[Rfam]
RNA sequence: AUGGAUUGAGACGAUGUGGAUGGGCCCGUGCUAAGUGCUGGGCUCAGGAAAGUCCCCGGGCCCAUACUGCAGAAACGCAGGCCUGGAAACAGGUAAUCUUUGAGCUGGGGCUGGUUCACACUUUCGGGUGUGUGGGCUGAGACAUGUGUGGAGCCUAUGCCAGUCCCGCCAAAGUAAAUUGGCCGACAAUAUACAGUCAUUCACAUGGUCCGUAACGGACUAACAGAACGGGGCUUACGUCUGUGAUCCA
Numbered sequence: 001a002u003g004g005a006u007u008g009a010g011a012c013g014a015u016g017u018g019g020a021u022g023g024g025c026c027c028g029u030g031c032u033a034a035g036u037g038c039u040g041g042g043c044u045c046a047g048g049a050a051a052g053u054c055c056c057c058g059g060g061c062c063c064a065u066a067c068u069g070c071a072g073a074a075a076c077g078c079a080g081g082c083c084u085g086g087a088a089a090c091a092g093g094u095a096a097u098c099u100u101u102g103a104g105c106u107g108g109g110g111c112u113g114g115u116u117c118a119c120a121c122u123u124u125c126g127g128g129u130g131u132g133u134g135g136g137c138u139g140a141g142a143c144a145u146g147u148g149u150g151g152a153g154c155c156u157a158u159g160c161c162a163g164u165c166c167c168g169c170c171a172a173a174g175u176a177a178a179u180u181g182g183c184c185g186a187c188a189a190u191a192u193a194c195a196g197u198c199a200u201u202c203a204c205a206u207g208g209u210c211c212g213u214a215a216c217g218g219a220c221u222a223a224c225a226g227a228a229c230g231g232g233g234c235u236u237a238c239g240u241c242u243g244u245g246a247u248c249c250a
Stems, first nucleotide, its partner, number of pairs: 002250007009242003014206006021046007050236003054233004068079003081094005115176001120175005134156004144149001208220005
Dot-bracket structure: .((((((((((..((((((.(((((((............)))))))...[[[.[[[[..........(((......))).(((((....)))))....................(....(((((.........((((......(....)...))))..............))))))........................)))))).(((((...))))).........]]]]]]]...))).)))))))
The record is a 250-nucleotide RNA from Trifolium pratense, which matches "RNase MRP" in Rfam. The source organism's lineage runs through Eukaryota, Tracheophyta, Euphyllophyta, Mesangiospermae and Trifolium. The base pairs follow the family's consensus structure, which is taken from published work. On this family, see Li et al., RNA 2002: "Phylogenetic analysis of the structure of RNase MRP RNA in yeasts".